[Rfam]
RNA sequence: CUGCGGGCCACGCCGUCCCAACGCGGCGCGUGCUCUCUGUGAGGAGAGUCGUA
Number, nucleotide and partner (000 for none) at each position: 001c000002u000003g000004c000005g000006g000007g000008c000009c000010a000011c028012g027013c026014c025015g024016u023017c000018c000019c000020a000021a000022c000023g016024c015025g014026g013027c012028g011029c000030g000031u000032g000033c048034u047035c046036u045037c044038u043039g000040u000041g000042a000043g038044g037045a036046g035047a034048g033049u000050c000051g000052u000053a000
The record is a 53-nucleotide RNA sequence from Allosphingosinicella flava, which matches "serC leader" in Rfam. By type it is a cis-regulatory leader. The organism belongs to Allosphingosinicella, within Bacteria. This family is a putative regulatory RNA structure that is found upstream of the serC-serA operon in some alpha-proteobacteria. The final stem of the structure overlaps the ribosome binding site of the serC reading frame.